[Rfam]
RNA sequence: GUCCGGAAAACAAUGAUGUGUUCGUUUCCAAGCACAUAUCUGAUGCUUCCAUGUGGAAUUCAACUACUCUGAGUUUUCUGGGC
Numbered sequence: 001g002u003c004c005g006g007a008a009a010a011c012a013a014u015g016a017u018g019u020g021u022u023c024g025u026u027u028c029c030a031a032g033c034a035c036a037u038a039u040c041u042g043a044u045g046c047u048u049c050c051a052u053g054u055g056g057a058a059u060u061c062a063a064c065u066a067c068u069c070u071g072a073g074u075u076u077u078c079u080g081g082g083c
Base pairs, nucleotide, nucleotide: 001083002082003081004080005079006078008076009075010074011073
RNA: Small nucleolar RNA SNORD121A